[Rfam]
Shown here is an 84-nucleotide RNA sequence from Plutella xylostella, a member of the family "mir-8517 microRNA precursor family".

RNA sequence: UUACUGGACGCUUUAGCUAUUGAACUGUUUUGUCACUCUCUGUCUCAUUGACAGAACAGUUCAAUAGCUAAAGCAUCCAGUAAC
Numbered sequence: 001u002u003a004c005u006g007g008a009c010g011c012u013u014u015a016g017c018u019a020u021u022g023a024a025c026u027g028u029u030u031u032g033u034c035a036c037u038c039u040c041u042g043u044c045u046c047a048u049u050g051a052c053a054g055a056a057c058a059g060u061u062c063a064a065u066a067g068c069u070a071a072a073g074c075a076u077c078c079a080g081u082a083a084c
Base pairs, nucleotide, nucleotide: 001083002082003081004080005079006078011073012072013071014070015069016068017067018066019065020064021063022062023061024060025059026058027057028056029055030054031053032052033051034050035049
The source organism's lineage runs through Eukaryota, Allotriocarida, Pterygota, Yponomeutoidea and Plutella. Rfam links the family to the GO terms miRNA-mediated post-transcriptional gene silencing and RISC complex. The family's consensus secondary structure was predicted with RNAalifold.